TPP riboswitch aptamer (THI element): a 129-nucleotide sequence from Azospirillum sp. RU38E.
[Rfam]
RNA sequence: GAACCGUCCAAGGGGAGCCCCGGCAAGGGGCUGAGAUACCGCUAUGGUGCCGUUCAACCGGCAUUGGCGCGGGAACCCUUAGAACCUGAUCCGGGUCGUACCGGCGUAGGGAUGGGAUUCAUAUAGGGG
Number, nucleotide and partner (000 for none) at each position: 001g000002a000003a000004c000005c000006g000007u116008c115009c114010a113011a079012g078013g077014g076015g000016a000017g031018c030019c029020c028021c027022g000023g000024c000025a000026a000027g021028g020029g019030g018031c017032u000033g000034a000035g000036a000037u000038a000039c072040c071041g070042c069043u000044a000045u000046g000047g000048u000049g000050c000051c000052g000053u000054u000055c000056a000057a000058c000059c000060g000061g000062c000063a000064u000065u000066g000067g000068c000069g042070c041071g040072g039073g000074a000075a000076c014077c013078c012079u011080u000081a000082g000083a000084a000085c110086c109087u108088g107089a000090u000091c104092c103093g102094g101095g000096u000097c000098g000099u000100a000101c094102c093103g092104g091105c000106g000107u088108a087109g086110g085111g000112a000113u010114g009115g008116g007117a000118u000119u000120c000121a000122u000123a000124u000125a000126g000127g000128g000129g000
Taxonomically the source falls in Azospirillum (Bacteria, Pseudomonadota, Alphaproteobacteria, Rhodospirillales). Rfam links the family to the GO term thiamine pyrophosphate binding. The base pairs follow the family's consensus structure, which is taken from published work.